[Rfam]
RNA: Glycine riboswitch aptamer
Organism: Burkholderiales bacterium LSUCC0115
RNA sequence: AUGCGCUGGUCUGGAGAGCGCAACGGGCCCCUCAAAAGGCCUGGUUGCCACCGAAGGGGCAAGCUCAUGCGGGGUCGCAUGAUGUGAAUCUCUCAGGUAAAAGGACAGAUCGGCUUCU
Numbered sequence: 001a002u003g004c005g006c007u008g009g010u011c012u013g014g015a016g017a018g019c020g021c022a023a024c025g026g027g028c029c030c031c032u033c034a035a036a037a038g039g040c041c042u043g044g045u046u047g048c049c050a051c052c053g054a055a056g057g058g059g060c061a062a063g064c065u066c067a068u069g070c071g072g073g074g075u076c077g078c079a080u081g082a083u084g085u086g087a088a089u090c091u092c093u094c095a096g097g098u099a100a101a102a103g104g105a106c107a108g109a110u111c112g113g114c115u116u117c118u
Stems, first nucleotide, its partner, number of pairs: 006113008020048004050098003053094002057092003063085002